RNA sequence: CAUCCCUAUGAAGAGUGAGAUUAAAAAAAGUAGUGGGCUGACUGUUGUUGAUGAAACUGUGUUAAUUCUGAGGGAUG
Number, nucleotide and partner (000 for none) at each position: 001c077002a076003u075004c074005c073006c072007u000008a000009u000010g000011a000012a000013g000014a000015g000016u000017g000018a000019g000020a000021u000022u000023a000024a000025a000026a000027a000028a000029a000030g000031u000032a000033g000034u000035g000036g000037g000038c000039u000040g000041a000042c000043u000044g000045u000046u000047g000048u000049u000050g000051a000052u000053g000054a000055a000056a000057c000058u000059g000060u000061g000062u000063u000064a000065a000066u000067u000068c000069u000070g000071a000072g006073g005074g004075a003076u002077g001

Background: The family of this 77-nucleotide sequence from Tripterygium wilfordii is "Small nucleolar RNA R21". The literature on the family includes a 2001 paper in J Mol Biol by Barneche et al., "Identification of 66 box C/D snoRNAs in Arabidopsis thaliana: extensive gene duplications generated multiple isoforms predicting new ribosomal RNA 2'-O-methylation sites". The family's RNA type in Rfam is C/D-box small nucleolar RNA. The family's consensus secondary structure was predicted with PFOLD.